Shown here is a 176-nucleotide RNA sequence from Bacillus sp. cl95, a member of the family "Lysine riboswitch aptamer". The family's consensus secondary structure is taken from published work. It scores 135 bits against the family's covariance model. Riboswitches are metabolite binding domains within certain messenger RNAs that serve as precision sensors for their corresponding targets. The organism belongs to Bacillus, within Bacteria.
RNA sequence: AGUGAAGGUAGAGGUGCGAACUUCAAUAGUAGAAGCUGGGAGGGGAAUGAGCUCUGUUGAUUGGCUUUGAAAGGGGAGGUCGCCGAAGUGGGGAAAGACUCAUUCUUUUCUUGCUGGUUCUGUAUUGAAUAAAUGCAGAAUUGUCAGGACGCCUGUCUUGGAGAGCUAUCUUACAU
Numbered sequence: 001a002g003u004g005a006a007g008g009u010a011g012a013g014g015u016g017c018g019a020a021c022u023u024c025a026a027u028a029g030u031a032g033a034a035g036c037u038g039g040g041a042g043g044g045g046a047a048u049g050a051g052c053u054c055u056g057u058u059g060a061u062u063g064g065c066u067u068u069g070a071a072a073g074g075g076g077a078g079g080u081c082g083c084c085g086a087a088g089u090g091g092g093g094a095a096a097g098a099c100u101c102a103u104u105c106u107u108u109u110c111u112u113g114c115u116g117g118u119u120c121u122g123u124a125u126u127g128a129a130u131a132a133a134u135g136c137a138g139a140a141u142u143g144u145c146a147g148g149a150c151g152c153c154u155g156u157c158u159u160g161g162a163g164a165g166c167u168a169u170c171u172u173a174c175a176u
Stems, first nucleotide, its partner, number of pairs: 006171006016083004021078004032068008087115012116142011144161007